[Rfam]
RNA: Small nucleolar RNA SNORD45
RNA sequence: GGUCAGUGAUGAGUGUUGACAUGUAUUAUCUGAUGCAGGGUUGAUGUCUGUCACCACUUAAGCUCUAGAAUUGCUCUAAGACCCA
Numbered sequence: 001g002g003u004c005a006g007u008g009a010u011g012a013g014u015g016u017u018g019a020c021a022u023g024u025a026u027u028a029u030c031u032g033a034u035g036c037a038g039g040g041u042u043g044a045u046g047u048c049u050g051u052c053a054c055c056a057c058u059u060a061a062g063c064u065c066u067a068g069a070a071u072u073g074c075u076c077u078a079a080g081a082c083c084c085a
Stems, first nucleotide, its partner, number of pairs: 001083004